The family of this 77-nucleotide RNA from Microtus ochrogaster is "Small nucleolar RNA SNORD111".
It scores 62 bits against the family's covariance model.
Rfam classes the family as a C/D-box small nucleolar RNA.
On this family, see Galardi et al., Mol Cell Biol 2002: "Purified box C/D snoRNPs are able to reproduce site-specific 2'-O-methylation of target RNA in vitro".
Its family is annotated with RNA processing and nucleolus in the Gene Ontology.
The base pairs follow the family's consensus structure, which was predicted with RNAalifold.
[Rfam]
RNA sequence: CGGCCUGAAGUGAUGAUUCACAUUCAUGUCUCUUCUCUGAGGAACUACUGAAGGAAACUGUGUAUCUGAUCAGGCCU
Numbered sequence: 001c002g003g004c005c006u007g008a009a010g011u012g013a014u015g016a017u018u019c020a021c022a023u024u025c026a027u028g029u030c031u032c033u034u035c036u037c038u039g040a041g042g043a044a045c046u047a048c049u050g051a052a053g054g055a056a057a058c059u060g061u062g063u064a065u066c067u068g069a070u071c072a073g074g075c076c077u
Stems, first nucleotide, its partner, number of pairs: 002076004